The family of this 164-nucleotide sequence from Actinomyces glycerinitolerans is "c-di-AMP riboswitch aptamer (ydaO/yuaA leader)".
RNA sequence: GAGCCGCCUCCGCCAACGACUUUUUCCGGCAGGCCCGGGGGAACCACUUCUCCGGCCGUGACGCUCCGGCGGACGCGGCCUCGGGGUGAAGCCCGCAGCACGCGGGCCGGGCGUCUCCCGCCCGAACCCGACAGCUAACCUCGUCGGCUCUGCAGGAGAAUUCA
Numbered sequence: 001g002a003g004c005c006g007c008c009u010c011c012g013c014c015a016a017c018g019a020c021u022u023u024u025u026c027c028g029g030c031a032g033g034c035c036c037g038g039g040g041g042a043a044c045c046a047c048u049u050c051u052c053c054g055g056c057c058g059u060g061a062c063g064c065u066c067c068g069g070c071g072g073a074c075g076c077g078g079c080c081u082c083g084g085g086g087u088g089a090a091g092c093c094c095g096c097a098g099c100a101c102g103c104g105g106g107c108c109g110g111g112c113g114u115c116u117c118c119c120g121c122c123c124g125a126a127c128c129c130g131a132c133a134g135c136u137a138a139c140c141u142c143g144u145c146g147g148c149u150c151u152g153c154a155g156g157a158g159a160a161u162u163c164a
Stems, first nucleotide, its partner, number of pairs: 002149004010033002036143005045083001084129003092106004109123004
Rfam's curators write: This family represents a conserved RNA structure found upstream of the ydaO and yuaA genes in Bacillus subtilis and related genes in other bacteria. The ydaO/yuaA element is thought to act as a genetic 'off' switch for the ydaO and yuaA genes in its native state. It is believed that the element may be triggered during osmotic shock leading to activation of ydaO, a predicted amino acid transporter gene, and members of the yuaA-yubG operon which code for KtrA and KtrB K+ transporters.